[Rfam]
RNA sequence: CGGGUUAUAUGCCUUUAUUGUCACGUUUUAUUUUUCGUUGGAGAGUUGUCCCAGAAUUGAUUAGCCAGCGAAUAAAUUGACAAGCCCGAACAUCUGUUCGGGCUUUUUUUAUUCCAGAU
Numbered sequence: 001c002g003g004g005u006u007a008u009a010u011g012c013c014u015u016u017a018u019u020g021u022c023a024c025g026u027u028u029u030a031u032u033u034u035u036c037g038u039u040g041g042a043g044a045g046u047u048g049u050c051c052c053a054g055a056a057u058u059g060a061u062u063a064g065c066c067a068g069c070g071a072a073u074a075a076a077u078u079g080a081c082a083a084g085c086c087c088g089a090a091c092a093u094c095u096g097u098u099c100g101g102g103c104u105u106u107u108u109u110u111a112u113u114c115c116a117g118a119u
Stems, first nucleotide, its partner, number of pairs: 007021003010017002037069005079107002082105010

Shown here is a 119-nucleotide RNA sequence from Citrobacter freundii, a member of the family "MicC RNA". Rfam describes the family as follows. MicC (previously known as IS063) is located between the ompN and ydbK genes in E. coli. This family of Hfq-associated sRNA is thought to be a regulator of OmpC expression. Its family is annotated with sRNA-mediated gene silencing and mRNA binding in the Gene Ontology. The family's RNA type in Rfam is small RNA. A reference for the family is Chen et al. (2004), "MicC, a second small-RNA regulator of Omp protein expression in Escherichia coli", J Bacteriol. It scores 105 bits against the family's covariance model. Pairs were carried over by alignment from the consensus structure, which was predicted with PFOLD.